[Rfam]
RNA sequence: UUGUGAGAGAAGGAUGGUGGUGUUACAGCAGUGGGAACUGCUGUAACACCACCAUCCUUCUCUCACAAA
Numbered sequence: 001u002u003g004u005g006a007g008a009g010a011a012g013g014a015u016g017g018u019g020g021u022g023u024u025a026c027a028g029c030a031g032u033g034g035g036a037a038c039u040g041c042u043g044u045a046a047c048a049c050c051a052c053c054a055u056c057c058u059u060c061u062c063u064c065a066c067a068a069a
Base pairs, nucleotide, nucleotide: 003066004065005064006063007062009060010059011058012057013056014055015054016053017052018051019050020049021048023046024045025044026043027042

Notes
A member of the RNA family "mir-1421 microRNA precursor family" from Nyctiprogne leucopyga, 69 nucleotides long. The match comes from Rfam's covariance-model search (46 bits). The family has 53 seed sequences and 110 matches in Rfam 15.1. Lineage of the source: Eukaryota > Craniata > Gnathostomata > Strisores > Nyctiprogne. The family's consensus secondary structure was predicted with RNAalifold.